[Rfam]
Background
Shown here is a 103-nucleotide RNA sequence from Clostridioides difficile, a member of the family "Purine riboswitch aptamer". The family's consensus secondary structure is taken from published work. Lineage of the source: Bacteria > Bacillati > Bacillota > Clostridia > Clostridioides difficile. Rfam's curators put it in the seed alignment.

RNA sequence: AUUCAUGUUUUGUACUGUAUAACAUAUAAUUUUGACAAUAUGGGUCAUAAGUUUCUACCGGAAUACCGUAAAUAUUCUGACUAUGUAUACUAUUAUUUAGUUA
Dot-bracket structure: .................((((.((((...((.((((.......)))).))........(((((((.......)))))))..))))))))..............